[Rfam]
RNA sequence: CCCGCCAAUCCUCUCAACGAUGCUCAAAUGUGCGGGU
Numbered sequence: 001c002c003c004g005c006c007a008a009u010c011c012u013c014u015c016a017a018c019g020a021u022g023c024u025c026a027a028a029u030g031u032g033c034g035g036g037u
Stems, first nucleotide, its partner, number of pairs: 001036005008024001010022001